RNA sequence: GUGUUUUUCAUGGUAUUAGAUUUAAGGUUAACGAAGAUUGGUUGUCUCUCGACAACCAUUUUUUUAUUU
Number, nucleotide and partner (000 for none) at each position: 001g000002u000003g000004u000005u000006u000007u000008u000009c000010a000011u000012g000013g000014u000015a000016u000017u000018a000019g000020a000021u000022u000023u000024a000025a000026g000027g000028u000029u000030a000031a000032c000033g000034a000035a000036g000037a000038u000039u000040g057041g056042u055043u054044g053045u052046c051047u000048c000049u000050c000051g046052a045053c044054a043055a042056c041057c040058a000059u000060u000061u000062u000063u000064u000065u000066a000067u000068u000069u000

Bacteroidetes FopS (family of paralogous sRNAs): a 69-nucleotide sequence from Coprobacter secundus. The family has 12 seed sequences and 822 matches in Rfam 15.1. It is annotated as a small RNA. Rfam's curators write: The RNA-binding protein RbpB and BTncRNA_FopS sRNA are involved in the post-transcription regulation of polysaccharide utilisation loci (PUL). It scores 75 bits against the family's covariance model.